RNA: SAM-I/IV (S-adenosyl methionine) riboswitch aptamer
RNA sequence: UUAUCUCAUCAUGAGCGGUUUCUCUCACAAACCCGCCAACCGAGCCUAAAAGCCACGGUGGUCAGUUCCGCUAAAAGGAAUGAUGUGCCUUUUAUUAGGAAAAAGUGGAACCGCCUG
Numbered sequence: 001u002u003a004u005c006u007c008a009u010c011a012u013g014a015g016c017g018g019u020u021u022c023u024c025u026c027a028c029a030a031a032c033c034c035g036c037c038a039a040c041c042g043a044g045c046c047u048a049a050a051a052g053c054c055a056c057g058g059u060g061g062u063c064a065g066u067u068c069c070g071c072u073a074a075a076a077g078g079a080a081u082g083a084u085g086u087g088c089c090u091u092u093u094a095u096u097a098g099g100a101a102a103a104a105g106u107g108g109a110a111c112c113g114c115c116u117g
Stems, first nucleotide, its partner, number of pairs: 007085004015034001017033005035062003040058003044053002088099003